[Rfam]
RNA: transfer-messenger RNA
RNA sequence: GGGGCUGAUUGGCUUUCGACAGGAGCAAAGAGACUUAAGUGCAUGUGAGCUGGUAAGCUCUAAAACUACCACAAAUAAAUAAACGCAAACAACGCAAAUUACGCUCCAGCUUACGCAAAAGUCGCGUAAGUUUAUCACACUUUUGGAGUCGGCUUAAGAACUUCUAAUCUAGCUAGAAUCUUUCAAGCUGUAAUCUUUGCUAGAUGCUCUUUUUGUCAUACCUUAGCAAAAAGAAAAGAAUAAGGUUGCUUGUGGGAUUUAUCUUGGGGUGUUGGAUAACCACGAAAAGAAAACAAUACCUACUAAACAUGUAGAUUCUUAAGAAGCUCAAGCUUUUGGACUGGGGUUCAACUCCCCACAGCUCCACCA
Numbered sequence: 001g002g003g004g005c006u007g008a009u010u011g012g013c014u015u016u017c018g019a020c021a022g023g024a025g026c027a028a029a030g031a032g033a034c035u036u037a038a039g040u041g042c043a044u045g046u047g048a049g050c051u052g053g054u055a056a057g058c059u060c061u062a063a064a065a066c067u068a069c070c071a072c073a074a075a076u077a078a079a080u081a082a083a084c085g086c087a088a089a090c091a092a093c094g095c096a097a098a099u100u101a102c103g104c105u106c107c108a109g110c111u112u113a114c115g116c117a118a119a120a121g122u123c124g125c126g127u128a129a130g131u132u133u134a135u136c137a138c139a140c141u142u143u144u145g146g147a148g149u150c151g152g153c154u155u156a157a158g159a160a161c162u163u164c165u166a167a168u169c170u171a172g173c174u175a176g177a178a179u180c181u182u183u184c185a186a187g188c189u190g191u192a193a194u195c196u197u198u199g200c201u202a203g204a205u206g207c208u209c210u211u212u213u214u215g216u217c218a219u220a221c222c223u224u225a226g227c228a229a230a231a232a233g234a235a236a237a238g239a240a241u242a243a244g245g246u247u248g249c250u251u252g253u254g255g256g257a258u259u260u261a262u263c264u265u266g267g268g269g270u271g272u273u274g275g276a277u278a279a280c281c282a283c284g285a286a287a288a289g290a291a292a293a294c295a296a297u298a299c300c301u302a303c304u305a306a307a308c309a310u311g312u313a314g315a316u317u318c319u320u321a322a323g324a325a326g327c328u329c330a331a332g333c334u335u336u337u338g339g340a341c342u343g344g345g346g347u348u349c350a351a352c353u354c355c356c357c358a359c360a361g362c363u364c365c366a367c368c369a
Stems, first nucleotide, its partner, number of pairs: 001365007020338007034323006041316001042311005047060005052070004117144005150190006157183003162178004168204006208234009220246004250285006262276002265302004271297003342358005